[Rfam]
RNA sequence: CUUGAGCGAGCCCAGCCACAGCGGCCGGUCGUCGCCGCGCUCCUGCCCGUACGUGGCCAGCAGCGCGUUCGCCUC
Numbered sequence: 001c002u003u004g005a006g007c008g009a010g011c012c013c014a015g016c017c018a019c020a021g022c023g024g025c026c027g028g029u030c031g032u033c034g035c036c037g038c039g040c041u042c043c044u045g046c047c048c049g050u051a052c053g054u055g056g057c058c059a060g061c062a063g064c065g066c067g068u069u070c071g072c073c074u075c
Base pairs, nucleotide, nucleotide: 015025016024017023038065039064043060044059045058047056048055049054

The family of this 75-nucleotide sequence from Streptomyces sp. ISL-11 is "ASpks TB sRNA". The family has 77 seed sequences and 9,052 matches in Rfam 15.1. The family's consensus secondary structure is taken from published work.